[Rfam]
RNA: Glycine riboswitch aptamer
Organism: Oscillibacter hominis
RNA sequence: GGACGAAGCUCUGAAAAGCAUGACACAUGCACCGGCGGGGCAACCGGACUGCGGUCCGGGAAUCUCUCAGGUAAAGACACAGAGGCGCAACA
Number, nucleotide and partner (000 for none) at each position: 001g000002g000003a000004c000005g000006a000007a000008g000009c084010u083011c082012u081013g080014a000015a000016a000017a000018g000019c029020a028021u027022g026023a000024c000025a000026c022027a021028u020029g019030c000031a072032c071033c070034g068035g067036c000037g000038g066039g065040g064041c000042a000043a000044c059045c058046g057047g056048a000049c000050u000051g000052c000053g000054g000055u000056c047057c046058g045059g044060g000061a000062a000063u000064c040065u039066c038067u035068c034069a000070g033071g032072u031073a000074a000075a000076g000077a000078c000079a000080c013081a012082g011083a010084g009085g000086c000087g000088c000089a000090a000091c000092a000